[Rfam]
RNA: MIR397 microRNA precursor family
RNA sequence: UGGAGAAACAUCAUUGAGUGCAGCGUUGAUGAAGCUAACUAGUAUUAGCAAUUGCCUUGUGUCUCUCCUGUGGAUGCUAAACGGUUUUAUCGACGCUGCACUCAAUCAUGUUUUUU
Numbered sequence: 001u002g003g004a005g006a007a008a009c010a011u012c013a014u015u016g017a018g019u020g021c022a023g024c025g026u027u028g029a030u031g032a033a034g035c036u037a038a039c040u041a042g043u044a045u046u047a048g049c050a051a052u053u054g055c056c057u058u059g060u061g062u063c064u065c066u067c068c069u070g071u072g073g074a075u076g077c078u079a080a081a082c083g084g085u086u087u088u089a090u091c092g093a094c095g096c097u098g099c100a101c102u103c104a105a106u107c108a109u110g111u112u113u114u115u116u
Base pairs, nucleotide, nucleotide: 006113007112008111009110010109011108013106014105015104016103017102018101019100020099021098022097023096024095025094026093027092028091030089031088032087